[Rfam]
RNA sequence: GAGAAGCUUUAGGGGUGCCCGGGCGGGCUGAGAAUAUACCCUUUGAACCUGAUACGGAUGAUACCGGCGAAGGAAAAAGUCCCACCUGACCA
Numbered sequence: 001g002a003g004a005a006g007c008u009u010u011a012g013g014g015g016u017g018c019c020c021g022g023g024c025g026g027g028c029u030g031a032g033a034a035u036a037u038a039c040c041c042u043u044u045g046a047a048c049c050u051g052a053u054a055c056g057g058a059u060g061a062u063a064c065c066g067g068c069g070a071a072g073g074a075a076a077a078a079g080u081c082c083c084a085c086c087u088g089a090c091c092a
Stems, first nucleotide, its partner, number of pairs: 006080005011042004016036001017028004048073003055066003
Source information: A member of the RNA family "TPP riboswitch aptamer (THI element)" from Indibacter alkaliphilus, 92 nucleotides long. Rfam's curators write: Vitamin B(1) in its active form thiamin pyrophosphate (TPP) is an essential coenzyme that is synthesised by coupling of pyrimidine and thiazole moieties in bacteria. Taxonomically the source falls in Indibacter alkaliphilus (Bacteria, Pseudomonadati, Bacteroidota, Cytophagia). The family's consensus secondary structure is taken from published work.